[Rfam]
A member of the RNA family "mir-146 microRNA precursor family" from Notothenia coriiceps, 91 nucleotides long. Pairs were carried over by alignment from the consensus structure, which was predicted with WAR.
RNA sequence: UUAAGUGCUGUACUAUGAGAACUGAAUUCCAUAGAUGGUGGUGUGUUCAGGUCUCAUCUAUGGGCUUAGUUCUUUUGGAAUGGUACUAGUU
Dot-bracket structure: .......(..(.(....((((((((.......((((...................))))......))))))))...).)..).........
Numbered sequence: 001u002u003a004a005g006u007g008c009u010g011u012a013c014u015a016u017g018a019g020a021a022c023u024g025a026a027u028u029c030c031a032u033a034g035a036u037g038g039u040g041g042u043g044u045g046u047u048c049a050g051g052u053c054u055c056a057u058c059u060a061u062g063g064g065c066u067u068a069g070u071u072c073u074u075u076u077g078g079a080a081u082g083g084u085a086c087u088a089g090u091u
Stems, first nucleotide, its partner, number of pairs: 008082001011079001013077001018073008033059004
Taxonomically the source falls in Notothenia (Eukaryota, Deuterostomia, Chordata, Notothenioidei). A reference for the family is Cai et al. (2005), "Kaposi's sarcoma-associated herpesvirus expresses an array of viral microRNAs in latently infected cells", Proc Natl Acad Sci U S A.